[Rfam]
RNA sequence: AUCGGACAGGCACAGGCAAAUGGAGGCCGACAUGUUCUUCGAUAAUGUGGUUGUCGCUGGCGUCGUCACGGUCGGAUUGAUGUUUGUUUUCUUCGCCGGUUUUGGACUUUUCAUCUGGAAGGACUCGCAGAAGCGCAAAGACCGCUGAUCCUUCCCGAUACAACGAGCACGCAAGGCAUUUAGGGCGACUUCGGUCGCCCAUUUUUUUU
Numbered sequence: 001a002u003c004g005g006a007c008a009g010g011c012a013c014a015g016g017c018a019a020a021u022g023g024a025g026g027c028c029g030a031c032a033u034g035u036u037c038u039u040c041g042a043u044a045a046u047g048u049g050g051u052u053g054u055c056g057c058u059g060g061c062g063u064c065g066u067c068a069c070g071g072u073c074g075g076a077u078u079g080a081u082g083u084u085u086g087u088u089u090u091c092u093u094c095g096c097c098g099g100u101u102u103u104g105g106a107c108u109u110u111u112c113a114u115c116u117g118g119a120a121g122g123a124c125u126c127g128c129a130g131a132a133g134c135g136c137a138a139a140g141a142c143c144g145c146u147g148a149u150c151c152u153u154c155c156c157g158a159u160a161c162a163a164c165g166a167g168c169a170c171g172c173a174a175g176g177c178a179u180u181u182a183g184g185g186c187g188a189c190u191u192c193g194g195u196c197g198c199c200c201a202u203u204u205u206u207u208u209u
Stems, first nucleotide, its partner, number of pairs: 009097003047057003074085004167177002170175001183200007
This 209-nucleotide sequence from Pseudomonas japonica belongs to the Rfam family "PhrS". A search with the family's covariance model found it, with a score of 200 bits. Taxonomically the source falls in Pseudomonas (Bacteria, Pseudomonadati, Gammaproteobacteria, Pseudomonadaceae). Rfam classes the family as a small RNA.